[Rfam]
Nucleotides: 066
Stems, first nucleotide, its partner, number of pairs: 010050001012048005026038004054064003
Number, partner (000 for none) and nucleotide at each position: 001000u002000a003000u004000g005000a006000a007000g008000g009000a010050a011000g012048c013047c014046c015045a016044c017000u018000a019000a020000a021000a022000c023000c024000u025000u026038u027037c028036a029035u030000g031000u032000c033000c034000u035029g036028u037027g038026g039000c040000g041000a042000a043000c044016g045015u046014g047013g048012g049000a050010u051000c052000a053000a054064c055063a056062c057000a058000u059000c060000c061000u062056g063055u064054g065000a066000a

The record is a 66-nucleotide sequence from Bacillus solimangrovi, which matches "Bacillaceae-1 RNA" in Rfam. Rfam classes the family as a small RNA.